[Rfam]
RNA sequence: CCGUUGAGUAUAAGCGGUCAGCGUGACAGCAGAUUCACGCAGGACAUUGCUCUACAG
Numbered sequence: 001c002c003g004u005u006g007a008g009u010a011u012a013a014g015c016g017g018u019c020a021g022c023g024u025g026a027c028a029g030c031a032g033a034u035u036c037a038c039g040c041a042g043g044a045c046a047u048u049g050c051u052c053u054a055c056a057g
Stems, first nucleotide, its partner, number of pairs: 006052005015042001018044002021040006